[Rfam]
RNA sequence: ACGUAAGCGUUGAUGAAGAAGAGUACAUAUUAUAGACAUGUCAGAGAGCUGAUGGUUGGUGCGAAUCAGUAUGAAAGUAAUAUGGAAUGGGCUUCGGAGCUUCCAAACCGAAACGAAAAAAGUAGGCUUUGGCGAAAAGAUCUCAUCGUUACAAGAGACACGUAUUGUAUUUCGAUACGGAAAAGUGCGUUACUUUUGUAACGAAUUAAGGUGGCACCACGGGAGUACCCGUCCUUUUU
Number, nucleotide and partner (000 for none) at each position: 001a000002c000003g000004u000005a000006a000007g100008c099009g000010u000011u000012g000013a000014u000015g095016a094017a093018g092019a000020a000021g000022a000023g000024u000025a000026c084027a083028u082029a081030u080031u079032a000033u000034a000035g000036a000037c073038a072039u071040g000041u000042c000043a000044g000045a000046g000047a000048g070049c069050u068051g067052a066053u065054g000055g000056u000057u000058g000059g000060u000061g000062c000063g000064a000065a053066u052067c051068a050069g049070u048071a039072u038073g037074a000075a000076a000077g000078u000079a031080a030081u029082a028083u027084g026085g000086a000087a000088u000089g000090g000091g000092c018093u017094u016095c015096g000097g000098a000099g008100c007101u000102u000103c131104c000105a129106a128107a000108c126109c125110g000111a000112a000113a000114c000115g000116a000117a000118a000119a000120a000121a000122g000123u000124a000125g109126g108127c000128u106129u105130u000131g103132g000133c148134g147135a146136a000137a000138a000139g000140a000141u000142c000143u000144c000145a000146u135147c134148g133149u000150u000151a000152c000153a000154a000155g000156a000157g000158a000159c000160a000161c000162g000163u000164a000165u000166u000167g000168u000169a000170u000171u000172u000173c000174g000175a000176u000177a000178c000179g000180g000181a000182a000183a000184a000185g000186u000187g000188c203189g202190u201191u200192a199193c198194u000195u000196u000197u000198g193199u192200a191201a190202c189203g188204a000205a000206u000207u000208a236209a235210g234211g233212u000213g000214g000215c000216a000217c000218c000219a232220c231221g230222g229223g228224a000225g000226u000227a000228c223229c222230c221231g220232u219233c211234c210235u209236u208237u000238u000239u000